RNA sequence: UACUACCAAACCCUAUCUCCACCUCCACGUGGUUAACGCUGGGAGCUCUUUCUUAAAGAAAAGCUGCAAACGGAGAAGG
Numbered sequence: 001u002a003c004u005a006c007c008a009a010a011c012c013c014u015a016u017c018u019c020c021a022c023c024u025c026c027a028c029g030u031g032g033u034u035a036a037c038g039c040u041g042g043g044a045g046c047u048c049u050u051u052c053u054u055a056a057a058g059a060a061a062a063g064c065u066g067c068a069a070a071c072g073g074a075g076a077a078g079g
Base pairs, nucleotide, nucleotide: 012079013078014077016075018073019072021033022032023031044065045064046063047062049060050059051058

A member of the RNA family "drz-agam-1 ribozyme" from Hermetia illucens, 79 nucleotides long. The source organism's lineage runs through Eukaryota, Mandibulata, Pancrustacea, Brachycera and Hermetia. Its family is annotated with catalytic activity in the Gene Ontology. A reference for the family is Webb et al. (2009), "Widespread occurrence of self-cleaving ribozymes", Science.